[Rfam]
RNA sequence: CUUGAUCGACCCCAGCCACAGCGGUCGGUCCUCGGGGCGGCCCUGGCCGUAGGUGGCCAGCAGCGCCUGCGCCUC
Numbered sequence: 001c002u003u004g005a006u007c008g009a010c011c012c013c014a015g016c017c018a019c020a021g022c023g024g025u026c027g028g029u030c031c032u033c034g035g036g037g038c039g040g041c042c043c044u045g046g047c048c049g050u051a052g053g054u055g056g057c058c059a060g061c062a063g064c065g066c067c068u069g070c071g072c073c074u075c
Base pairs, nucleotide, nucleotide: 015025016024017023031071033069038065039064043060044059045058047056048055049054
RNA: ASpks TB sRNA